[Rfam]
RNA sequence: GACGUCUCGCUUUCACCGGUGACCUUGGUUUGUUAUGUUUAGUACUAAGGCACGCGGUGAAUGCCAAACGUU
Numbered sequence: 001g002a003c004g005u006c007u008c009g010c011u012u013u014c015a016c017c018g019g020u021g022a023c024c025u026u027g028g029u030u031u032g033u034u035a036u037g038u039u040u041a042g043u044a045c046u047a048a049g050g051c052a053c054g055c056g057g058u059g060a061a062u063g064c065c066a067a068a069c070g071u072u
Base pairs, nucleotide, nucleotide: 003070004069005068009064010063012061013060014059015058016057019055020054021053023050024049025048026047027046028045029044
RNA: mir-124 microRNA precursor family